[Rfam]
Nucleotides: 084
Stems, first nucleotide, its partner, number of pairs: 001084008010075001012073001014071001015069007023061003028056008040047001
Number, partner (000 for none) and nucleotide at each position: 001084g002083c003082g004081g005080c006079a007078u008077g009000g010075u011000g012073g013000c014071c015069c016068c017067g018066u019065u020064c021063g022000u023061c024060g025059g026000a027000c028056g029055a030054g031053c032052g033051u034050g035049c036000c037000u038000a039000g040047g041000c042000a043000u044000c045000g046000g047040c048000c049035g050034c051033g052032c053031g054030c055029u056028c057000c058000u059025c060024c061023g062000u063021c064020g065019a066018a067017c068016g069015g070000c071014g072000c073012c074000u075010g076000c077008c078007g079006u080005g081004u082003c083002g084001c